[Rfam]
RNA: L31-Actinobacteria ribosomal protein leader
RNA sequence: GCGGUACCGGUUCACGCCACGACGGCCAGCCCCACAUGGAGCCCUGCUAGCGGCGACCCGGCGACC
Numbered sequence: 001g002c003g004g005u006a007c008c009g010g011u012u013c014a015c016g017c018c019a020c021g022a023c024g025g026c027c028a029g030c031c032c033c034a035c036a037u038g039g040a041g042c043c044c045u046g047c048u049a050g051c052g053g054c055g056a057c058c059c060g061g062c063g064a065c066c
Stems, first nucleotide, its partner, number of pairs: 003066003007061004015055004020050001